Shown here is a 79-nucleotide RNA sequence from Alligator sinensis, a member of the family "Mammalian CPEB3 ribozyme". NCBI's taxonomy places the organism under Eukaryota, Eumetazoa, Euteleostomi, Tetrapoda, Alligator. The family has 14 seed sequences and 5,706 matches in Rfam 15.1. It scores 44 bits against the family's covariance model. Rfam describes the family as follows. The mammalian CPEB3 ribozyme is a self cleaving RNA located in the second intron of the CPEB3 gene which belongs to a family of genes regulating messenger RNA polyadenylation.

RNA sequence: AGUUACAAGCGAGGUAGGCCAUAGCAGACGUGCUCACGGUGUGGCCCUGUCAGAGUCCAAAGAAUCUGUGAAUUCUGCU
Numbered sequence: 001a002g003u004u005a006c007a008a009g010c011g012a013g014g015u016a017g018g019c020c021a022u023a024g025c026a027g028a029c030g031u032g033c034u035c036a037c038g039g040u041g042u043g044g045c046c047c048u049g050u051c052a053g054a055g056u057c058c059a060a061a062g063a064a065u066c067u068g069u070g071a072a073u074u075c076u077g078c079u
Stems, first nucleotide, its partner, number of pairs: 013047001017046004023079006030042003051068004056063002
Dot-bracket structure: ............[...[[[[..((((((.(((.......)))]]]]]...((((.((....)).)))).....))))))